Notes
Shown here is an 88-nucleotide RNA from Lihuaxuella thermophila, a member of the family "ZMP/ZTP riboswitch aptamer (pfl RNA motif)".
RNA sequence: CGGGCGCACAGUGACUGGCGAUAAUGAAGUGGAAUCAACCACGGGGGAGCUGUGCGAAUUCAUAUGCCGGAUCGCCUGGGCAAGAGGU
Numbered sequence: 001c002g003g004g005c006g007c008a009c010a011g012u013g014a015c016u017g018g019c020g021a022u023a024a025u026g027a028a029g030u031g032g033a034a035u036c037a038a039c040c041a042c043g044g045g046g047g048a049g050c051u052g053u054g055c056g057a058a059u060u061c062a063u064a065u066g067c068c069g070g071a072u073c074g075c076c077u078g079g080g081c082a083a084g085a086g087g088u
Base pairs, nucleotide, nucleotide: 005056006055007054008053009052010051011050012049015046016045017076018075019074020073021072029042030041031040032039065082066081067080068079
Annotation: The family's consensus secondary structure is taken from published work.